[Rfam]
Nucleotides: 094
Stems, first nucleotide, its partner, number of pairs: 006063004015025004026054003031050003035045002040087001065076004
Number, partner (000 for none) and nucleotide at each position: 001000g002000u003000a004000u005000a006063g007062c008061a009060u010000c011000a012000a013000g014000a015025a016024c017023g018022c019000a020000a021000u022018g023017c024016g025015u026054a027053c028052c029000a030000a031050c032049c033048g034000a035045c036044a037000c038000a039000c040087u041000c042000g043000a044036u045035g046000c047000a048033c049032g050031g051000u052028g053027g054026u055000u056000u057000a058000g059000a060009a061008u062007g063006u064000g065076g066075a067074g068073a069000u070000a071000u072000u073068u074067c075066u076065c077000a078000a079000a080000g081000a082000u083000u084000c085000g086000a087040g088000u089000a090000a091000u092000c093000u094000u
Description
The family of this 94-nucleotide sequence is "SAM-I/IV (S-adenosyl methionine) riboswitch aptamer". Pairs were carried over by alignment from the consensus structure, which is taken from published work. The sequence is in the family's curated seed alignment. The family has 417 seed sequences and 567 matches in Rfam 15.1. The family is grouped with related families in Rfam's "SAM clan". A reference for the family is Weinberg et al. (2008), "The aptamer core of SAM-IV riboswitches mimics the ligand-binding site of SAM-I riboswitches", RNA.